[Rfam]
RNA sequence: CAACCCUUGUCGGACCUUUGUGGAUGUUUGCCUUUUCGGUGAAGUUUCAAAAGAUAUUCUUCACCGGGUUAACAUCUACAGAGGUCCUGAAGGGUUU
Numbered sequence: 001c002a003a004c005c006c007u008u009g010u011c012g013g014a015c016c017u018u019u020g021u022g023g024a025u026g027u028u029u030g031c032c033u034u035u036u037c038g039g040u041g042a043a044g045u046u047u048c049a050a051a052a053g054a055u056a057u058u059c060u061u062c063a064c065c066g067g068g069u070u071a072a073c074a075u076c077u078a079c080a081g082a083g084g085u086c087c088u089g090a091a092g093g094g095u096u097u
Base pairs, nucleotide, nucleotide: 003095004094005093006092007091008090012087013086014085015084016083017082018081019080020079021078022077023076024075025074026073027072028071030069031068032067037066038065039064040063041062042061043060044059

The family of this 97-nucleotide sequence from Caenorhabditis brenneri is "mir-42 microRNA precursor family". The family's consensus secondary structure was predicted with RNAalifold. Lineage of the source: Eukaryota > Opisthokonta > Rhabditomorpha > Peloderinae > Caenorhabditis. Clan: mir-36 clan. Its family is annotated with RISC complex and miRNA-mediated post-transcriptional gene silencing in the Gene Ontology.